[Rfam]
RNA: BsrG
Organism: Paenibacillus cremeus
RNA sequence: UGCAAUAGAAAAGGCUUAUAAGGGCGGUCGGCUAACCUUCCGGAAGGGAGGUGAUGCCUGUGGAGGUAUUUCAAGCGUUUCAAUUGAUGUUCCUAUUUGGAAUGUUCAUUCUAGCCUUGCUUACCUACAUAAGACGAAAAUAGACCGCCCUCCGACUAAGGUUGCGGUCUAUUUCGCUGCUUAACCUGUUGUUAAAGCCUACCGCCCUUAAAAGCGGAUAUUGCGCGGAGGAGUCGGCGGCAACCGGCUCC
Numbered sequence: 001u002g003c004a005a006u007a008g009a010a011a012a013g014g015c016u017u018a019u020a021a022g023g024g025c026g027g028u029c030g031g032c033u034a035a036c037c038u039u040c041c042g043g044a045a046g047g048g049a050g051g052u053g054a055u056g057c058c059u060g061u062g063g064a065g066g067u068a069u070u071u072c073a074a075g076c077g078u079u080u081c082a083a084u085u086g087a088u089g090u091u092c093c094u095a096u097u098u099g100g101a102a103u104g105u106u107c108a109u110u111c112u113a114g115c116c117u118u119g120c121u122u123a124c125c126u127a128c129a130u131a132a133g134a135c136g137a138a139a140a141u142a143g144a145c146c147g148c149c150c151u152c153c154g155a156c157u158a159a160g161g162u163u164g165c166g167g168u169c170u171a172u173u174u175c176g177c178u179g180c181u182u183a184a185c186c187u188g189u190u191g192u193u194a195a196a197g198c199c200u201a202c203c204g205c206c207c208u209u210a211a212a213a214g215c216g217g218a219u220a221u222u223g224c225g226c227g228g229a230g231g232a233g234u235c236g237g238c239g240g241c242a243a244c245c246g247g248c249u250c251c
Stems, first nucleotide, its partner, number of pairs: 001225005007219001012200006019155001021151004026145001028143001033054001035052001037050005062124001064122005075090003099116002165176003202217004230251008